[Rfam]
RNA: DUF805b RNA
Organism: Mucilaginibacter sp. PPCGB 2223
RNA sequence: AUAGAGAAAGCCGAAAAUCUUUAAGAGUAAGCA
Numbered sequence: 001a002u003a004g005a006g007a008a009a010g011c012c013g014a015a016a017a018u019c020u021u022u023a024a025g026a027g028u029a030a031g032c033a
Base pairs, nucleotide, nucleotide: 003020004019005018010032011031